[Rfam]
RNA sequence: CGUAACGGAUUCUAGGGUUCCAGCCGCGUGCGGUGUUCGGUCCGAGAGAAUCCGCCCCGCGAUGCGCGGGGUACACGGAGGGAUAAAAACCCGGGAGGC
Numbered sequence: 001c002g003u004a005a006c007g008g009a010u011u012c013u014a015g016g017g018u019u020c021c022a023g024c025c026g027c028g029u030g031c032g033g034u035g036u037u038c039g040g041u042c043c044g045a046g047a048g049a050a051u052c053c054g055c056c057c058c059g060c061g062a063u064g065c066g067c068g069g070g071g072u073a074c075a076c077g078g079a080g081g082g083a084u085a086a087a088a089a090c091c092c093g094g095g096a097g098g099c
Stems, first nucleotide, its partner, number of pairs: 007053006015043002020040002022037001023034004054072008074094001076097001080092003

The record is a 99-nucleotide RNA sequence from Acidiferrobacter sp. SPIII_3, which matches "Guanidine-I riboswitch aptamer" in Rfam. A search with the family's covariance model found it, with a score of 88 bits.